RNA sequence: AGGUCAUUUCAAAAAGGGCUUGUUGGACCAAAACCAGCUCUUAAUGCUGUGACCAAAACCUGAAGUUCUCCAUAGGAUAUAACAGUCACUCAAUAGUGCUAUGUUUUCCUGAGGAAAUAUAAGG
Numbered sequence: 001a002g003g004u005c006a007u008u009u010c011a012a013a014a015a016g017g018g019c020u021u022g023u024u025g026g027a028c029c030a031a032a033a034c035c036a037g038c039u040c041u042u043a044a045u046g047c048u049g050u051g052a053c054c055a056a057a058a059c060c061u062g063a064a065g066u067u068c069u070c071c072a073u074a075g076g077a078u079a080u081a082a083c084a085g086u087c088a089c090u091c092a093a094u095a096g097u098g099c100u101a102u103g104u105u106u107u108c109c110u111g112a113g114g115a116a117a118u119a120u121a122a123g124g
Stems, first nucleotide, its partner, number of pairs: 002054006014042007067117001069115003074110004082102001084100002087098004
Dot-bracket structure: .((((((......(((((((...............)))))))......))))))............(.(((..((((....(.((.((((....)))))).)....))))..))).).......
RNA: Small nucleolar RNA SNORA25
Organism: Equus caballus